MIR159 microRNA precursor family: a 188-nucleotide sequence from Nyssa sinensis.
Taxonomically the source falls in Nyssa (Eukaryota, Euphyllophyta, eudicotyledons, Gunneridae).
[Rfam]
RNA sequence: UAGGGUAGAAGAGAGCUUUCUUCAGUCCACUCAUGGGUGACACUAAGAUUUAAUUAGCUGCCGACUCAUUCAUCCAAAUACCGAGUUAAUGCAUGGAUAUACUCAGUAAAUGAUUGAAUGAUGCGGGAGACAAAUUGAAUCUUAAGCUUCCUAUACUUGGACUGAAGGGAGCUCCCUUCACUGUUAUC
Numbered sequence: 001u002a003g004g005g006u007a008g009a010a011g012a013g014a015g016c017u018u019u020c021u022u023c024a025g026u027c028c029a030c031u032c033a034u035g036g037g038u039g040a041c042a043c044u045a046a047g048a049u050u051u052a053a054u055u056a057g058c059u060g061c062c063g064a065c066u067c068a069u070u071c072a073u074c075c076a077a078a079u080a081c082c083g084a085g086u087u088a089a090u091g092c093a094u095g096g097a098u099a100u101a102c103u104c105a106g107u108a109a110a111u112g113a114u115u116g117a118a119u120g121a122u123g124c125g126g127g128a129g130a131c132a133a134a135u136u137g138a139a140u141c142u143u144a145a146g147c148u149u150c151c152u153a154u155a156c157u158u159g160g161a162c163u164g165a166a167g168g169g170a171g172c173u174c175c176c177u178u179c180a181c182u183g184u185u186a187u188c
Base pairs, nucleotide, nucleotide: 013174014173015172016171017170018169019168020167023164024163025162026161027160028159029158036151058129059128061126062125063124067120068119069118070117075112
Gene Ontology terms of the family: miRNA-mediated post-transcriptional gene silencing and RISC complex. A reference for the family is Jones-Rhoades and Bartel (2004), "Computational identification of plant microRNAs and their targets, including a stress-induced miRNA", Mol Cell. A search with the family's covariance model found it, with a score of 161 bits.